A member of the RNA family "Archaeal small subunit ribosomal RNA" from an uncultured archaeon, 600 nucleotides of a longer RNA.

RNA sequence: UGGCGGGGGAGCACUACAACGGGUGGAGCCUGCGGUUCAAUUGGAUUCAACGCCGGAAAGCUUACCGGGUCAGACAGCAAUAUGAAGGUCAAGCUAAAGACUUUACCGAAUUCGCUGAGAGGAGGUGCAUGGCCGUCGUCAGUUCGUAUCGUGAGACAUCCUGUUAAGUCAGGCAACGAGCAAGACCCGUGCCUACAGUUGCCAGCAUACCCUCCGGGGUGAUGGGCACACUGUGGGGACCGCCGCUGCUAAAGCGGAGGAAGGAGCGGGCUACGGUAGGUCAGUAUGCCCCGAAUCAUCCGGGCUACACGCGGGCUACAAUGGUUGGGACAAUGGGCACCUACACCGAGAGGUGAUGGUAAUCUCCUAAACCCAGCCUUAGUUCGGAUUGAGGGCUGCAACUCGCCCUCAUGAAGCCGGAAUCCGUAGUAAUCGCGUAUCAACAUCACGCGGUGAAUACGUCCCUGCUCCUUGCACACACCGCCCGUCAAACCAUGCGAGUGAGGUCUGAAUGAGGGCUUGCUUUAACAAGUUCGAAUUUAGGCUUCGCGAGUGGGGUUAAGUCGUAACAAGGUAGCCGUAGGGGAAUCUGCGGCUGGA
Numbered sequence: 001u002g003g004c005g006g007g008g009g010a011g012c013a014c015u016a017c018a019a020c021g022g023g024u025g026g027a028g029c030c031u032g033c034g035g036u037u038c039a040a041u042u043g044g045a046u047u048c049a050a051c052g053c054c055g056g057a058a059a060g061c062u063u064a065c066c067g068g069g070u071c072a073g074a075c076a077g078c079a080a081u082a083u084g085a086a087g088g089u090c091a092a093g094c095u096a097a098a099g100a101c102u103u104u105a106c107c108g109a110a111u112u113c114g115c116u117g118a119g120a121g122g123a124g125g126u127g128c129a130u131g132g133c134c135g136u137c138g139u140c141a142g143u144u145c146g147u148a149u150c151g152u153g154a155g156a157c158a159u160c161c162u163g164u165u166a167a168g169u170c171a172g173g174c175a176a177c178g179a180g181c182a183a184g185a186c187c188c189g190u191g192c193c194u195a196c197a198g199u200u201g202c203c204a205g206c207a208u209a210c211c212c213u214c215c216g217g218g219g220u221g222a223u224g225g226g227c228a229c230a231c232u233g234u235g236g237g238g239a240c241c242g243c244c245g246c247u248g249c250u251a252a253a254g255c256g257g258a259g260g261a262a263g264g265a266g267c268g269g270g271c272u273a274c275g276g277u278a279g280g281u282c283a284g285u286a287u288g289c290c291c292c293g294a295a296u297c298a299u300c301c302g303g304g305c306u307a308c309a310c311g312c313g314g315g316c317u318a319c320a321a322u323g324g325u326u327g328g329g330a331c332a333a334u335g336g337g338c339a340c341c342u343a344c345a346c347c348g349a350g351a352g353g354u355g356a357u358g359g360u361a362a363u364c365u366c367c368u369a370a371a372c373c374c375a376g377c378c379u380u381a382g383u384u385c386g387g388a389u390u391g392a393g394g395g396c397u398g399c400a401a402c403u404c405g406c407c408c409u410c411a412u413g414a415a416g417c418c419g420g421a422a423u424c425c426g427u428a429g430u431a432a433u434c435g436c437g438u439a440u441c442a443a444c445a446u447c448a449c450g451c452g453g454u455g456a457a458u459a460c461g462u463c464c465c466u467g468c469u470c471c472u473u474g475c476a477c478a479c480a481c482c483g484c485c486c487g488u489c490a491a492a493c494c495a496u497g498c499g500a501g502u503g504a505g506g507u508c509u510g511a512a513u514g515a516g517g518g519c520u521u522g523c524u525u526u527a528a529c530a531a532g533u534u535c536g537a538a539u540u541u542a543g544g545c546u547u548c549g550c551g552a553g554u555g556g557g558g559u560u561a562a563g564u565c566g567u568a569a570c571a572a573g574g575u576a577g578c579c580g581u582a583g584g585g586g587a588a589u590c591u592g593c594g595g596c597u598g599g600a
Stems, first nucleotide, its partner, number of pairs: 001478002003475003007472007016462002020426005025319001027317008035308002041056004065303006075117004079112002087107003091103003121292002124290004130286002132281003135277004142181006149156002160173004187269004192237007202226002206224003209220004240260002243257005323378007335366003340359002344355004385416001390411007432454007481573001483570001486566002489563001491560004496555003501550013516535007575598010
On this family, see Yusupov et al., Science 2001: "Crystal structure of the ribosome at 5.5 A resolution". Its family is annotated with structural constituent of ribosome and ribosome in the Gene Ontology. Pairs were carried over by alignment from the consensus structure, which is taken from published work.